[Rfam]
RNA sequence: UGGCAGUGGUGACUGUCUUAGGACACCUUUAGAGUAACUGUGAAAUAAUAAUUGUCUCUUUCUGAGCCAU
Numbered sequence: 001u002g003g004c005a006g007u008g009g010u011g012a013c014u015g016u017c018u019u020a021g022g023a024c025a026c027c028u029u030u031a032g033a034g035u036a037a038c039u040g041u042g043a044a045a046u047a048a049u050a051a052u053u054g055u056c057u058c059u060u061u062c063u064g065a066g067c068c069a070u
Stems, first nucleotide, its partner, number of pairs: 001069004
Dot-bracket structure: ((((.............................................................)))).

Small nucleolar RNA SNORD58: a 70-nucleotide RNA sequence from Anthoscopus minutus. A search with the family's covariance model found it, with a score of 60 bits. Rfam links the family to the GO terms RNA processing and nucleolus. The family has 33 seed sequences and 2,484 matches in Rfam 15.1. Taxonomically the source falls in Anthoscopus (Eukaryota, Sauria, Coelurosauria, Aves). A reference for the family is Galardi et al. (2002), "Purified box C/D snoRNPs are able to reproduce site-specific 2'-O-methylation of target RNA in vitro", Mol Cell Biol. Rfam classes the family as a C/D-box small nucleolar RNA. Pairs were carried over by alignment from the consensus structure, which was predicted with PFOLD. About the family: snoRNA U58 is found in introns 1, 3 and 6 of the ribosomal protein RPL17 gene in humans.